This 301-nucleotide sequence from Anhinga rufa belongs to the Rfam family "Metazoan signal recognition particle RNA". Pairs were carried over by alignment from the consensus structure, which is taken from published work. The family is grouped with related families in Rfam's "SRP clan". The signal recognition particle (SRP) is a universally conserved ribonucleoprotein. It is involved in the co-translational targeting of proteins to membranes. The eukaryotic SRP consists of a 300-nucleotide 7S RNA and six proteins: SRPs 72, 68, 54, 19, 14, and 9. Archaeal SRP consists of a 7S RNA and homologues of the eukaryotic SRP19 and SRP54 proteins. Eukaryotic and archaeal 7S RNAs have very similar secondary structures, as represented by this family. Eight helical elements fold into the Alu and S domains, separated by a long linker region. The Alu domain is thought to mediate the peptide chain elongation retardation function of the SRP. The universally conserved helix which interacts with the SRP54 M domain mediates signal sequence recognition. In eukaryotes and archaea, the SRP19-helix 6 complex is thought to be involved in SRP assembly and stabilises helix 8 for SRP54 binding. The Signal Recognition Particle Database (SRPDB) provides compilations of SRP components, with phylogenetic data and structural illustrations. Many sequences below the threshold for this family are clearly closely related, but are most likely to be SRP RNA derived pseudogenes. The human genome in particular is known to contain a large amount of SRP RNA related sequence, including Alu repeats. While the threshold of this family is set high so as to minimise the number of hits to such regions, it is likely that some remain. Lineage of the source: Eukaryota > Vertebrata > Tetrapoda > Sauropsida > Anhinga. The family's RNA type in Rfam is non-coding RNA gene.

[Rfam]
RNA sequence: GCCGAUUCACGGGUGGCUCCUGCCUGUAGUCUCAGCUACUCGGGAGGCUGAGCGGGCUGGCUUGAGCCCAGGAGUUCUAGGCUGCAGUGCGCUAUGCUGAGCGGGCGUCCAAGCUAAGGCCAGCAUCAAUAUGGUGAGCCCCGGGGAGCCGGGGGACACCAGGUUGACUAAGGUGGGGUGAACCUGCCCAGGUUGGAGACUUUUGAGCAGGUCAAAGCUCCCAUGCUGAUCAUUAGCGGGAUUGUGCCUGUGAAUAGCUACUGCAGCGUAGCCUGGGCAACACAGAGAGACAUGGGCUCCU
Numbered sequence: 001g002c003c004g005a006u007u008c009a010c011g012g013g014u015g016g017c018u019c020c021u022g023c024c025u026g027u028a029g030u031c032u033c034a035g036c037u038a039c040u041c042g043g044g045a046g047g048c049u050g051a052g053c054g055g056g057c058u059g060g061c062u063u064g065a066g067c068c069c070a071g072g073a074g075u076u077c078u079a080g081g082c083u084g085c086a087g088u089g090c091g092c093u094a095u096g097c098u099g100a101g102c103g104g105g106c107g108u109c110c111a112a113g114c115u116a117a118g119g120c121c122a123g124c125a126u127c128a129a130u131a132u133g134g135u136g137a138g139c140c141c142c143g144g145g146g147a148g149c150c151g152g153g154g155g156a157c158a159c160c161a162g163g164u165u166g167a168c169u170a171a172g173g174u175g176g177g178g179u180g181a182a183c184c185u186g187c188c189c190a191g192g193u194u195g196g197a198g199a200c201u202u203u204u205g206a207g208c209a210g211g212u213c214a215a216a217g218c219u220c221c222c223a224u225g226c227u228g229a230u231c232a233u234u235a236g237c238g239g240g241a242u243u244g245u246g247c248c249u250g251u252g253a254a255u256a257g258c259u260a261c262u263g264c265a266g267c268g269u270a271g272c273c274u275g276g277g278c279a280a281c282a283c284a285g286a287g288a289g290a291c292a293u294g295g296g297c298u299c300c301u
Base pairs, nucleotide, nucleotide: 001048002047003046011025012024013018030045031044032043050299051298052297053296054291057289058288061285062284066278067277068276069275070274071273072272077271078270079269081267082266083265084264085263086262087261088260089259091258092257093256094255095254097252101251102250103249104248105247106246107245108244109240110239113237114236115235116234118231119230121228122227123226124225125224126223127166128165129164130163132161133160134159135158136157139154140153141152142151143150144149168172175221176220177219178218179217186212187211188210193205195203
It scores 181 bits against the family's covariance model.